Overview:
The record is a 57-nucleotide RNA sequence, which matches "Transposase-1 RNA" in Rfam. Rfam classes the family as a small RNA.
Nucleotides: 057
Stems, first nucleotide, its partner, number of pairs: 009052006020042004027036003
Number, partner (000 for none) and nucleotide at each position: 001000c002000g003000u004000u005000a006000a007000g008000a009052g010051a011050a012049u013048g014047u015000c016000a017000c018000u019000g020042u021041c022040a023039u024000u025000a026000c027036c028035c029034g030000g031000a032000a033000a034029c035028g036027g037000a038000u039023a040022u041021g042020g043000g044000a045000a046000u047014a048013u049012a050011u051010u052009u053000g054000a055000c056000g057000a